[Rfam]
RNA sequence: CCGUGCUAGAUGGGGAGGUAGCGGUGCCCUGUAACUCGCAAUCCGCUGUAGCGAGGUUGAAUUCCUUUCAUGAGGUCUCGACGUUGUGGAGCAGCCUCAAGCACGUGGUGUUGACGUUUGGGUCCUGCGCAACGGAAACUCAUGAACCCUGUCAGGUCCGGAAGGAAGCAGCAGUAAGUGAGACCUUUCGUGUGCCGCGGGGUUGCCUGGGCCGAGCUAACGACUUGAGAAGCGUUCAUGGCGCCUUGAUCGACGAAAGGUGCACGG
Numbered sequence: 001c002c003g004u005g006c007u008a009g010a011u012g013g014g015g016a017g018g019u020a021g022c023g024g025u026g027c028c029c030u031g032u033a034a035c036u037c038g039c040a041a042u043c044c045g046c047u048g049u050a051g052c053g054a055g056g057u058u059g060a061a062u063u064c065c066u067u068u069c070a071u072g073a074g075g076u077c078u079c080g081a082c083g084u085u086g087u088g089g090a091g092c093a094g095c096c097u098c099a100a101g102c103a104c105g106u107g108g109u110g111u112u113g114a115c116g117u118u119u120g121g122g123u124c125c126u127g128c129g130c131a132a133c134g135g136a137a138a139c140u141c142a143u144g145a146a147c148c149c150u151g152u153c154a155g156g157u158c159c160g161g162a163a164g165g166a167a168g169c170a171g172c173a174g175u176a177a178g179u180g181a182g183a184c185c186u187u188u189c190g191u192g193u194g195c196c197g198c199g200g201g202g203u204u205g206c207c208u209g210g211g212c213c214g215a216g217c218u219a220a221c222g223a224c225u226u227g228a229g230a231a232g233c234g235u236u237c238a239u240g241g242c243g244c245c246u247u248g249a250u251c252g253a254c255g256a257a258a259g260g261u262g263c264a265c266g267g
Stems, first nucleotide, its partner, number of pairs: 001267006009058003012030004017025001019023001035055005064260006074251004082243009094233002097228005105221002107218003116212008124201006130192002133190005139182005149174004157166003
Bacterial large signal recognition particle RNA: a 267-nucleotide sequence from Sporolactobacillus laevolacticus.
From the family's description: The signal recognition particle (SRP) is a universally conserved ribonucleoprotein involved in the co-translational targeting of proteins to membranes.
The organism belongs to Sporolactobacillus laevolacticus, within Bacteria.
Gene Ontology terms of the family: SRP-dependent cotranslational protein targeting to membrane, signal sequence recognition and signal recognition particle, plasma membrane targeting.